RNA sequence: AUGGAUAUAUGAUGAUAAACAUAACCUUGAACUCUCUCUCUGACUACAUGAUGGAAAAUAUCAAGGUCUGAUCUGUUCAU
Numbered sequence: 001a002u003g004g005a006u007a008u009a010u011g012a013u014g015a016u017a018a019a020c021a022u023a024a025c026c027u028u029g030a031a032c033u034c035u036c037u038c039u040c041u042g043a044c045u046a047c048a049u050g051a052u053g054g055a056a057a058a059u060a061u062c063a064a065g066g067u068c069u070g071a072u073c074u075g076u077u078c079a080u
Stems, first nucleotide, its partner, number of pairs: 001080007